RNA sequence: UUGCGAAUACAUUCUCGCUGUCCUGAUAUUUCAGUGAUCAGGGCAGGCUAGACAUUCGCUAUAUUAUCACUGUGCAGUGUGUCUCCAGGGCAAGUUUGUCUCCCUAGUUCUGGUUUUUAACUGCAAGUAACAUUC
Numbered sequence: 001u002u003g004c005g006a007a008u009a010c011a012u013u014c015u016c017g018c019u020g021u022c023c024u025g026a027u028a029u030u031u032c033a034g035u036g037a038u039c040a041g042g043g044c045a046g047g048c049u050a051g052a053c054a055u056u057c058g059c060u061a062u063a064u065u066a067u068c069a070c071u072g073u074g075c076a077g078u079g080u081g082u083c084u085c086c087a088g089g090g091c092a093a094g095u096u097u098g099u100c101u102c103c104c105u106a107g108u109u110c111u112g113g114u115u116u117u118u119a120a121c122u123g124c125a126a127g128u129a130a131c132a133u134u135c
Stems, first nucleotide, its partner, number of pairs: 003059003018046010069128003074124002085113007093105002
The family of this 135-nucleotide sequence from Varanus komodoensis is "Small nucleolar RNA SNORA72". The source organism's lineage runs through Eukaryota, Bilateria, Tetrapoda, Unidentata and Varanus. Rfam's curators write: U72 is a member of the H/ACA class of snoRNAs. The snoRNA gene is located in intron 4 of the ribosomal L30 protein gene in human, mouse and chicken.